This 278-nucleotide sequence from Dictyostelium discoideum belongs to the Rfam family "Dictyostelium signal recognition particle".
It is annotated as a non-coding RNA gene.
RNA sequence: AUGCAGGAUUGGGUAGCGGCAACCUGUAAUCAAGCGAUGCAUUCGAGGCGAGGACGAGAGCAUUGUUAGGACCUUUGGGACAAGCGACGCAUACAGUUGAUCCACACUAACGUUGGUGUCGACAUACUAUCAGUCUCUAAGGAUUGAAAGUAAGUUGAUAAUGACCAAGUCAAGGUCCAGGCUGGCAACAGAGCAGACAGAGCGAGGCACAUCGAUGGGUAGCGAGGAAAGUCGACUUAAAGUCGUCCAAAGGAAAUAACAAUGUAAACUCGAACAAA
Number, nucleotide and partner (000 for none) at each position: 001a042002u041003g040004c039005a038006g000007g031008a030009u029010u028011g025012g024013g023014u022015a000016g000017c000018g000019g000020c000021a000022a014023c013024c012025u011026g000027u000028a010029a009030u008031c007032a000033a000034g000035c000036g000037a000038u005039g004040c003041a002042u001043u051044c050045g049046a000047g000048g000049c045050g044051a043052g000053g000054a000055c272056g271057a270058g269059a000060g265061c264062a263063u262064u261065g260066u259067u258068a257069g000070g000071a000072c253073c252074u251075u250076u249077g248078g247079g000080a000081c000082a000083a000084g246085c245086g244087a243088c242089g000090c000091a000092u239093a238094c000095a237096g236097u235098u234099g233100a232101u228102c227103c226104a000105c000106a000107c222108u221109a220110a000111c217112g216113u215114u214115g213116g212117u211118g159119u158120c157121g156122a155123c154124a000125u152126a151127c150128u149129a000130u147131c146132a145133g144134u143135c142136u141137c000138u000139a000140a000141g136142g135143a134144u133145u132146g131147a130148a000149a128150g127151u126152a125153a000154g123155u122156u121157g120158a119159u118160a000161a000162u209163g208164a000165c207166c206167a000168a000169g203170u201171c200172a000173a000174g000175g198176u197177c196178c000179a000180g000181g000182c191183u190184g189185g000186c000187a000188a000189c184190a183191g182192a000193g000194c000195a000196g177197a176198c175199a000200g171201a170202g000203c169204g000205a000206g166207g165208c163209a162210c000211a117212u116213c115214g114215a113216u112217g111218g000219g000220u109221a108222g107223c000224g000225a000226g103227g102228a101229a000230a000231g000232u100233c099234g098235a097236c096237u095238u093239a092240a000241a000242g088243u087244c086245g085246u084247c078248c077249a076250a075251a074252g073253g072254a000255a000256a000257u068258a067259a066260c065261a064262a063263u062264g061265u060266a000267a000268a000269c058270u057271c056272g055273a000274a000275c000276a000277a000278a000
Pairs were carried over by alignment from the consensus structure, which is taken from published work.
Taxonomically the source falls in Dictyostelium (Eukaryota, Evosea, Eumycetozoa, Dictyostelia).